[Rfam]
RNA sequence: GCAAACAGAAUCGGAAUCGCUCGUAUAUUAUCGGGAAUAAGGCCCGAUCGUCUCUACCCGGAGACCUUAAAUUUCCGGACUACGAGCUCUCGGACGGACGAU
Numbered sequence: 001g002c003a004a005a006c007a008g009a010a011u012c013g014g015a016a017u018c019g020c021u022c023g024u025a026u027a028u029u030a031u032c033g034g035g036a037a038u039a040a041g042g043c044c045c046g047a048u049c050g051u052c053u054c055u056a057c058c059c060g061g062a063g064a065c066c067u068u069a070a071a072u073u074u075c076c077g078g079a080c081u082a083c084g085a086g087c088u089c090u091c092g093g094a095c096g097g098a099c100g101a102u
Stems, first nucleotide, its partner, number of pairs: 019087007030048006058078007
RNA: Purine riboswitch aptamer
Organism: Cohnella sp. OV330